[Rfam]
RNA sequence: UUUUGUGUUCUUCCACAGCUUUCUUGAACUGCAUGGUAAUUAUUAGAGAGAUGUGAGGGAAAAAUAAGAUGAGACCCAUCUUCUCCUUUUCUUCUUUUUAUCUUGUCCUCUUCUUUUCGUGCGGUUCAAUAAAGCUGUGGGAAGAUACAGAGA
Numbered sequence: 001u002u003u004u005g006u007g008u009u010c011u012u013c014c015a016c017a018g019c020u021u022u023c024u025u026g027a028a029c030u031g032c033a034u035g036g037u038a039a040u041u042a043u044u045a046g047a048g049a050g051a052u053g054u055g056a057g058g059g060a061a062a063a064a065u066a067a068g069a070u071g072a073g074a075c076c077c078a079u080c081u082u083c084u085c086c087u088u089u090u091c092u093u094c095u096u097u098u099u100a101u102c103u104u105g106u107c108c109u110c111u112u113c114u115u116u117u118c119g120u121g122c123g124g125u126u127c128a129a130u131a132a133a134g135c136u137g138u139g140g141g142a143a144g145a146u147a148c149a150g151a152g153a
Base pairs, nucleotide, nucleotide: 003150004149005148006147007146013140014139015138017136018135019134020133021132022131024129025128026127027126029124030123031122032121033120034119035118036117